[Rfam]
RNA sequence: CAGAGGAUAAUUCUUCGAGCUGUCCGGCCUUCGGCACAAGCCAUGGCGUACAGCCGGCAGGGUACGGCGGGAAACGGCCGUGCCUCCCAUUGUGGAAAGGAGAAACAAUGAAUAGAGG
Numbered sequence: 001c002a003g004a005g006g007a008u009a010a011u012u013c014u015u016c017g018a019g020c021u022g023u024c025c026g027g028c029c030u031u032c033g034g035c036a037c038a039a040g041c042c043a044u045g046g047c048g049u050a051c052a053g054c055c056g057g058c059a060g061g062g063u064a065c066g067g068c069g070g071g072a073a074a075c076g077g078c079c080g081u082g083c084c085u086c087c088c089a090u091u092g093u094g095g096a097a098a099g100g101a102g103a104a105a106c107a108a109u110g111a112a113u114a115g116a117g118g
Stems, first nucleotide, its partner, number of pairs: 006109001011104006019054005025048001027047003033042003060085009070075001086095002